[Rfam]
The family of this 312-nucleotide RNA from Xenopus tropicalis is "Nuclear RNase P". Its Rfam clan is "RNaseP clan".
RNA sequence: GUGGAGGGAAGCUCGGUGCUGAGGCUACAGACAGAGUGUAGGGGUCACUCUAUGUGCCUCAGGGAAGGUCUGAGACUGGAGCUCCUAGUUGCCCCUGCAGGGCAUCCCUUGGAUGAAGGGGGUGGGUCCCCAGAGAACUUGGCUCUGAUUGGCCAGUGAGUGCAAAAGAUGCAGCAAGUACCCAAUGUUGUGCUUCUGCAGAUGCAAAGGCAUCAGGCUUGGCACUGCCCCACAGCUGGCACAUUUAAGCUCAAUGGCUGAGAGGGAACUGCCUGUGGUUUCCCAACCCAAUUCAGACUACUCUCCCUCCAC
Numbered sequence: 001g002u003g004g005a006g007g008g009a010a011g012c013u014c015g016g017u018g019c020u021g022a023g024g025c026u027a028c029a030g031a032c033a034g035a036g037u038g039u040a041g042g043g044g045u046c047a048c049u050c051u052a053u054g055u056g057c058c059u060c061a062g063g064g065a066a067g068g069u070c071u072g073a074g075a076c077u078g079g080a081g082c083u084c085c086u087a088g089u090u091g092c093c094c095c096u097g098c099a100g101g102g103c104a105u106c107c108c109u110u111g112g113a114u115g116a117a118g119g120g121g122g123u124g125g126g127u128c129c130c131c132a133g134a135g136a137a138c139u140u141g142g143c144u145c146u147g148a149u150u151g152g153c154c155a156g157u158g159a160g161u162g163c164a165a166a167a168g169a170u171g172c173a174g175c176a177a178g179u180a181c182c183c184a185a186u187g188u189u190g191u192g193c194u195u196c197u198g199c200a201g202a203u204g205c206a207a208a209g210g211c212a213u214c215a216g217g218c219u220u221g222g223c224a225c226u227g228c229c230c231c232a233c234a235g236c237u238g239g240c241a242c243a244u245u246u247a248a249g250c251u252c253a254a255u256g257g258c259u260g261a262g263a264g265g266g267a268a269c270u271g272c273c274u275g276u277g278g279u280u281u282c283c284c285a286a287c288c289c290a291a292u293u294c295a296g297a298c299u300a301c302u303c304u305c306c307c308u309c310c311a312c
Stems, first nucleotide, its partner, number of pairs: 001312004007306003012262006020061005034050005070296005080237004090104005105121006122233005128227001142218003264283006
The family's RNA type in Rfam is ribozyme.
From the family's description: Ribonuclease P (RNase P) is a ubiquitous endoribonuclease, found in archaea, bacteria and eukarya as well as chloroplasts and mitochondria.
It scores 198 bits against the family's covariance model.